[Rfam]
RNA sequence: CUUGCGUGACAACGAGAGAGAGCACGCUUGUGGCCAUUCAUGUGAGGUACAUGCCUGUGCACAUGCGUGCUCUUUCUCGUUGUCACCUAAG
Numbered sequence: 001c002u003u004g005c006g007u008g009a010c011a012a013c014g015a016g017a018g019a020g021a022g023c024a025c026g027c028u029u030g031u032g033g034c035c036a037u038u039c040a041u042g043u044g045a046g047g048u049a050c051a052u053g054c055c056u057g058u059g060c061a062c063a064u065g066c067g068u069g070c071u072c073u074u075u076c077u078c079g080u081u082g083u084c085a086c087c088u089a090a091g
Stems, first nucleotide, its partner, number of pairs: 007085005013079002017075002020072001022070006029063003

The record is a 91-nucleotide RNA sequence from Amborella trichopoda, which matches "MIR535 microRNA precursor family" in Rfam. The sequence is in the family's curated seed alignment. Gene Ontology terms of the family: miRNA-mediated post-transcriptional gene silencing and RISC complex. On this family, see Zeng et al., Nucleic Acids Res 2010: "Conservation and divergence of microRNAs and their functions in Euphorbiaceous plants". NCBI's taxonomy places the organism under Eukaryota, Streptophytina, Embryophyta, Magnoliopsida, Amborella.